Shown here is a 68-nucleotide RNA, a member of the family "S15-Flavobacteria ribosomal protein leader".
Clan: Ribosomal Protein S15 Leader clan.
[Rfam]
RNA sequence: UAUAUUUGCCCUCAAUUCUGAGAAUCAGAGUUGCCUACAUAAAAAUUAUUUAAAUAAAUAUUGGAAUG
Numbered sequence: 001u002a003u004a005u006u007u008g009c010c011c012u013c014a015a016u017u018c019u020g021a022g023a024a025u026c027a028g029a030g031u032u033g034c035c036u037a038c039a040u041a042a043a044a045a046u047u048a049u050u051u052a053a054a055u056a057a058a059u060a061u062u063g064g065a066a067u068g
Stems, first nucleotide, its partner, number of pairs: 014032006
The sequence is in the family's curated seed alignment.